[Rfam]
RNA sequence: UUUCCCAUUUGACUACCACAACUUCUCCUAAUAGAAUUUAGUGGCUAUGCUUGUGGGAUAGAUUAAAGGCGCCAUGAUCUUAAGAGGGAGGGUUUUUCAGUGUCCUCCCUUUAUAUGAAAUGGCUGAACAGAAAUAG
Numbered sequence: 001u002u003u004c005c006c007a008u009u010u011g012a013c014u015a016c017c018a019c020a021a022c023u024u025c026u027c028c029u030a031a032u033a034g035a036a037u038u039u040a041g042u043g044g045c046u047a048u049g050c051u052u053g054u055g056g057g058a059u060a061g062a063u064u065a066a067a068g069g070c071g072c073c074a075u076g077a078u079c080u081u082a083a084g085a086g087g088g089a090g091g092g093u094u095u096u097u098c099a100g101u102g103u104c105c106u107c108c109c110u111u112u113a114u115a116u117g118a119a120a121u122g123g124c125u126g127a128a129c130a131g132a133a134a135u136a137g
Base pairs, nucleotide, nucleotide: 004057005056006055007054016044017043018042019041071124072123073122074121089112090111091110092109

Record summary:
Small nucleolar RNA SNORA29: a 137-nucleotide sequence from Jaculus jaculus. The family is grouped with related families in Rfam's "SNORA20 clan". Lineage of the source: Eukaryota > Metazoa > Theria > Dipodidae > Jaculus. Pairs were carried over by alignment from the consensus structure, which was predicted with PFOLD. The family has 26 seed sequences and 960 matches in Rfam 15.1. From the family's description: ACA29 is a member of the H/ACA class of snoRNA that guide the sites of modification of uridines to pseudouridines. Gene Ontology terms of the family: RNA processing and nucleolus.